[Rfam]
RNA sequence: GUGUAUGUGAGGGAGUAGGAUGUAUGGUUGUUAGAUAGACAACUACAAUCUUUUCUCACAACAGACAG
Numbered sequence: 001g002u003g004u005a006u007g008u009g010a011g012g013g014a015g016u017a018g019g020a021u022g023u024a025u026g027g028u029u030g031u032u033a034g035a036u037a038g039a040c041a042a043c044u045a046c047a048a049u050c051u052u053u054u055c056u057c058a059c060a061a062c063a064g065a066c067a068g
Stems, first nucleotide, its partner, number of pairs: 002063003006060009018051004025045008

Annotation: This 68-nucleotide sequence from Homo sapiens belongs to the Rfam family "mir-4510 microRNA precursor family". Gene Ontology terms of the family: RISC complex and miRNA-mediated post-transcriptional gene silencing. NCBI's taxonomy places the organism under Eukaryota, Eumetazoa, Theria, Homininae, Homo.